A member of the RNA family "c-di-GMP-I riboswitch aptamer" from Falsibacillus pallidus, 91 nucleotides long. A search with the family's covariance model found it, with a score of 89 bits. GEMM was predicted in a large-scale screen for bacterial structured RNA regulatory elements. The source organism's lineage runs through Bacteria, Bacillati, Caryophanales, Bacillaceae and Falsibacillus.
[Rfam]
RNA sequence: UUCCGAUAAUGGCAAACCUAUUGAAAGGUAGGGACGCAAAGCCACGGGCCUAAAGCAAAAUUCAUUUUGCCAAGGCAGCCGGGUUGCCGAA
Numbered sequence: 001u002u003c004c005g006a007u008a009a010u011g012g013c014a015a016a017c018c019u020a021u022u023g024a025a026a027g028g029u030a031g032g033g034a035c036g037c038a039a040a041g042c043c044a045c046g047g048g049c050c051u052a053a054a055g056c057a058a059a060a061u062u063c064a065u066u067u068u069g070c071c072a073a074g075g076c077a078g079c080c081g082g083g084u085u086g087c088c089g090a091a
Stems, first nucleotide, its partner, number of pairs: 012037002017032006040085004045081003048076003055070006